[Rfam]
RNA sequence: GAGGUAUUGGUGCUGAAUCCUGGUAAACAGGCUUGACAGGUUUGGGUGGUUCCAGACCGAUGUAUUACCCAAGAUACUC
Numbered sequence: 001g002a003g004g005u006a007u008u009g010g011u012g013c014u015g016a017a018u019c020c021u022g023g024u025a026a027a028c029a030g031g032c033u034u035g036a037c038a039g040g041u042u043u044g045g046g047u048g049g050u051u052c053c054a055g056a057c058c059g060a061u062g063u064a065u066u067a068c069c070c071a072a073g074a075u076a077c078u079c
Stems, first nucleotide, its partner, number of pairs: 001079003004075002007072004012068001014062002019031004039058006
RNA: Necrovirus cap-independent translation element